Shown here is a 46-nucleotide sequence from Cyprinus carpio, a member of the family "Histone 3' UTR stem-loop". The source organism's lineage runs through Eukaryota, Bilateria, Cypriniphysae, Cyprinidae and Cyprinus carpio. Rfam describes the family as follows. The mRNAs of metazoan histone genes lack a poly-A tail. 3' end processing occurs at a site between a highly conserved stem-loop (modelled by this family) and a purine rich region around 20 nts downstream (the histone downstream element, or HDE). The stem-loop is bound by a 31 kDa stem-loop binding protein (SLBP - also termed the histone hairpin binding protein, or HBP). Together with U7 snRNA binding of the HDE, SLBP binding nucleate s the formation of the processing complex. The histone 3' UTR stem-loop is also involved in nucleocytoplasmic transport of the mRNA, and in stability regulation and translation efficiency in the cytoplasm. Pairs were carried over by alignment from the consensus structure, which is taken from published work. Rfam classes the family as a cis-regulatory element. On this family, see Zhang et al., Proc Natl Acad Sci U S A 2014: "Molecular mechanisms for the regulation of histone mRNA stem-loop-binding protein by phosphorylation".
RNA sequence: CCAAAGGCUCUUUUAAGAGCCACCCACGUUUUCAAAAAGAGUGCGU
Numbered sequence: 001c002c003a004a005a006g007g008c009u010c011u012u013u014u015a016a017g018a019g020c021c022a023c024c025c026a027c028g029u030u031u032u033c034a035a036a037a038a039g040a041g042u043g044c045g046u
Stems, first nucleotide, its partner, number of pairs: 006021006